[Rfam]
Nucleotides: 127
Stems, first nucleotide, its partner, number of pairs: 003057005020046003025040004073115007088105003
Number, partner (000 for none) and nucleotide at each position: 001000a002000c003057c004056c005055u006054c007053c008000g009000g010000u011000u012000c013000c014000c015000u016000u017000u018000c019000c020046c021045a022044u023000c024000a025040g026039a027038u028037u029000g030000c031000a032000a033000c034000a035000c036000u037028g038027g039026u040025c041000u042000u043000a044022g045021u046020g047000u048000c049000g050000u051000a052000a053007g054006g055005a056004g057003g058000g059000a060000g061000a062000g063000c064000a065000u066000g067000c068000u069000g070000g071000a072000g073115c074114u075113g076112g077111c078110c079109u080000c081000a082000c083000a084000g085000c086000c087000u088105u089104g090103u091000g092000g093000u094000c095000u096000g097000g098000u099000a100000u101000a102000a103090g104089c105088a106000u107000g108000u109079g110078g111077g112076c113075u114074a115073g116000a117000u118000u119000c120000a121000a122000a123000c124000g125000g126000g127000g

Rfam assigns this 127-nucleotide RNA from Nannospalax galili to the family "Small nucleolar RNA SNORA61". The family's RNA type in Rfam is H/ACA-box small nucleolar RNA. Pairs were carried over by alignment from the consensus structure, which was predicted with PFOLD. The source organism's lineage runs through Eukaryota, Craniata, Gnathostomata, Sarcopterygii and Nannospalax.